RNA sequence: GACGUAAGUUCAGAGACUAAAAGAGCCACUUCCUGUGGCAACGUCUUUAUGACCCACAUCCUGUGGG
Numbered sequence: 001g002a003c004g005u006a007a008g009u010u011c012a013g014a015g016a017c018u019a020a021a022a023g024a025g026c027c028a029c030u031u032c033c034u035g036u037g038g039c040a041a042c043g044u045c046u047u048u049a050u051g052a053c054c055c056a057c058a059u060c061c062u063g064u065g066g067g
Base pairs, nucleotide, nucleotide: 012048013047014046015045016044017043025039026038027037028036029035053067054066055065056064057063